[Rfam]
RNA sequence: UGACGGGGGCCCGCACAAGCGGUGGAGCAUGUGGUUUAAUUCGAAGCAACGCGCAGAACCUUACCAGCCUUUGACAUGGGAACUAUGGGCAGAAGAGAUUUUGUCCUUCACUUCGGGUGGGUUCCACACAGGUGCUGCAUGGCUGUCGUCAGCUCGUGUCGUGAGAUGUUGGGUUAAGUCCCGCAACGAGCGCAACCCUCAUCUUCAGUUGCCAUCAUUUAGUUGGGCACUCUGAAGAAACUGCCGGUGACAAGCCGGAGGAAGGUGGGGAUGACGUCAAGUCCUCAUGGCCCUUACGGGCUGGGCUACACACGUGCUACAAUGGUGGUGACAGUGGGUCGCUAACUCGCGAGAGUAAGCUAAUCUCUAAAAGCCAUCUCAGUUCGGAUUGUUCUCUGCAACUCGAGAGCAUGAAGUCGGAAUCGCUAGUAAUCGUGGAUCAGCAUGCCACGGUGAAUACGUUCCCGGGCCUUGUACACACCGCCCGUCACACCAUGGGAGUUGGUUUUACCCGAAGCCGGUGAGCUAACCGCAAGGAGGCAGCCGACCACGGUAAGGUCAGCGACUGGGGUGAAGUCGUAACAAGG
Numbered sequence: 001u002g003a004c005g006g007g008g009g010c011c012c013g014c015a016c017a018a019g020c021g022g023u024g025g026a027g028c029a030u031g032u033g034g035u036u037u038a039a040u041u042c043g044a045a046g047c048a049a050c051g052c053g054c055a056g057a058a059c060c061u062u063a064c065c066a067g068c069c070u071u072u073g074a075c076a077u078g079g080g081a082a083c084u085a086u087g088g089g090c091a092g093a094a095g096a097g098a099u100u101u102u103g104u105c106c107u108u109c110a111c112u113u114c115g116g117g118u119g120g121g122u123u124c125c126a127c128a129c130a131g132g133u134g135c136u137g138c139a140u141g142g143c144u145g146u147c148g149u150c151a152g153c154u155c156g157u158g159u160c161g162u163g164a165g166a167u168g169u170u171g172g173g174u175u176a177a178g179u180c181c182c183g184c185a186a187c188g189a190g191c192g193c194a195a196c197c198c199u200c201a202u203c204u205u206c207a208g209u210u211g212c213c214a215u216c217a218u219u220u221a222g223u224u225g226g227g228c229a230c231u232c233u234g235a236a237g238a239a240a241c242u243g244c245c246g247g248u249g250a251c252a253a254g255c256c257g258g259a260g261g262a263a264g265g266u267g268g269g270g271a272u273g274a275c276g277u278c279a280a281g282u283c284c285u286c287a288u289g290g291c292c293c294u295u296a297c298g299g300g301c302u303g304g305g306c307u308a309c310a311c312a313c314g315u316g317c318u319a320c321a322a323u324g325g326u327g328g329u330g331a332c333a334g335u336g337g338g339u340c341g342c343u344a345a346c347u348c349g350c351g352a353g354a355g356u357a358a359g360c361u362a363a364u365c366u367c368u369a370a371a372a373g374c375c376a377u378c379u380c381a382g383u384u385c386g387g388a389u390u391g392u393u394c395u396c397u398g399c400a401a402c403u404c405g406a407g408a409g410c411a412u413g414a415a416g417u418c419g420g421a422a423u424c425g426c427u428a429g430u431a432a433u434c435g436u437g438g439a440u441c442a443g444c445a446u447g448c449c450a451c452g453g454u455g456a457a458u459a460c461g462u463u464c465c466c467g468g469g470c471c472u473u474g475u476a477c478a479c480a481c482c483g484c485c486c487g488u489c490a491c492a493c494c495a496u497g498g499g500a501g502u503u504g505g506u507u508u509u510a511c512c513c514g515a516a517g518c519c520g521g522u523g524a525g526c527u528a529a530c531c532g533c534a535a536g537g538a539g540g541c542a543g544c545c546g547a548c549c550a551c552g553g554u555a556a557g558g559u560c561a562g563c564g565a566c567u568g569g570g571g572u573g574a575a576g577u578c579g580u581a582a583c584a585a586g587g
Stems, first nucleotide, its partner, number of pairs: 001478002003475003007472007015462002019426005024320001026318008034309002040055001042053002064304007077128002079125005088105007108120004131293002134291004140287002142282003145278001147276002152191006158167003170183004197270004202238007212227002216225002241261002244258005324378006336367003341360002346355003385416001390411007432454007481586001483583001486579002491573004496568003501563012517548001519546004525541003530537002
Rfam assigns this 587-nucleotide part of an RNA from Magnetospirillum moscoviense to the family "Bacterial small subunit ribosomal RNA". The source organism's lineage runs through Bacteria, Pseudomonadota, Alphaproteobacteria, Rhodospirillales and Magnetospirillum. Pairs were carried over by alignment from the consensus structure, which is taken from published work.